[Rfam]
RNA: Small nucleolar RNA snR80
Organism: Colletotrichum tanaceti
RNA sequence: UUCACCUUGACUACACUCCGAGAUACACCAAUGCUCCACCAUGGUCUUUCUCUAUUUUGGUUCAAGGAAGAUUGAUUUCUUUAGCCCAUUACUCACCGCGGCUUCCCAUUACUCCAUGGAGGUCGUGGUCCACAACCGUGGCUAACAU
Numbered sequence: 001u002u003c004a005c006c007u008u009g010a011c012u013a014c015a016c017u018c019c020g021a022g023a024u025a026c027a028c029c030a031a032u033g034c035u036c037c038a039c040c041a042u043g044g045u046c047u048u049u050c051u052c053u054a055u056u057u058u059g060g061u062u063c064a065a066g067g068a069a070g071a072u073u074g075a076u077u078u079c080u081u082u083a084g085c086c087c088a089u090u091a092c093u094c095a096c097c098g099c100g101g102c103u104u105c106c107c108a109u110u111a112c113u114c115c116a117u118g119g120a121g122g123u124c125g126u127g128g129u130c131c132a133c134a135a136c137c138g139u140g141g142c143u144a145a146c147a148u
Stems, first nucleotide, its partner, number of pairs: 007065003020052004027045003083143004096128004101123006